[Rfam]
RNA: MIR403 microRNA precursor family
RNA sequence: ACACAUUUCAAGUUUGUGCGUGAAUCGAACCCCAACCCCGUCAUAUCAUCUUUGCCACGAAUCUCGAGGUUGAUUUUAACAGCAACGGAUCCUGUUAGAUUCACGCACAAAUUCGUAAUCUGUCU
Numbered sequence: 001a002c003a004c005a006u007u008u009c010a011a012g013u014u015u016g017u018g019c020g021u022g023a024a025u026c027g028a029a030c031c032c033c034a035a036c037c038c039c040g041u042c043a044u045a046u047c048a049u050c051u052u053u054g055c056c057a058c059g060a061a062u063c064u065c066g067a068g069g070u071u072g073a074u075u076u077u078a079a080c081a082g083c084a085a086c087g088g089a090u091c092c093u094g095u096u097a098g099a100u101u102c103a104c105g106c107a108c109a110a111a112u113u114c115g116u117a118a119u120c121u122g123u124c125u
Stems, first nucleotide, its partner, number of pairs: 001123003005119003011113016028096003